[Rfam]
RNA: Archaeal large subunit ribosomal RNA, nucleotides 575 to 673
Organism: Promethearchaeum syntrophicum
RNA sequence: GAAGCGGUCCGAAAGAGUUUGAAUCUCCGUGAAGUCUAAGGUGUGAACCGGACGACGAAUGGAGACGAUCAGGAUUGCUUCUUUAUUCUAGAAACAUUA
Numbered sequence: 001g002a003a004g005c006g007g008u009c010c011g012a013a014a015g016a017g018u019u020u021g022a023a024u025c026u027c028c029g030u031g032a033a034g035u036c037u038a039a040g041g042u043g044u045g046a047a048c049c050g051g052a053c054g055a056c057g058a059a060u061g062g063a064g065a066c067g068a069u070c071a072g073g074a075u076u077g078c079u080u081c082u083u084u085a086u087u088c089u090a091g092a093a094a095c096a097u098u099a
Stems, first nucleotide, its partner, number of pairs: 001081010015070002024065007034056001040049003084099002087096001